[Rfam]
Trypanosomatid snoRNA TB8Cs3H1: a 63-nucleotide sequence from Trypanosoma theileri.
For this family Rfam cites "A genome-wide analysis of C/D and H/ACA-like small nucleolar RNAs in Trypanosoma brucei reveals a trypanosome-specific pattern of rRNA modification" (Liang et al., RNA, 2005).
The source organism's lineage runs through Eukaryota, Discoba, Metakinetoplastina, Trypanosomatidae and Trypanosoma.
Rfam 15.1 lists 38 matches to the family in 17 species.

RNA sequence: AUGAGGUUCGAAUGCACCAGACGAGCACCGUUUGUCUCAGUGUGGGAAACGCCUCAAAGAAAG
Numbered sequence: 001a002u003g004a005g006g007u008u009c010g011a012a013u014g015c016a017c018c019a020g021a022c023g024a025g026c027a028c029c030g031u032u033u034g035u036c037u038c039a040g041u042g043u044g045g046g047a048a049a050c051g052c053c054u055c056a057a058a059g060a061a062a063g
Stems, first nucleotide, its partner, number of pairs: 002056006014043004019037002022034003
Rfam links the family to the GO terms nucleolus and RNA processing. It scores 68 bits against the family's covariance model.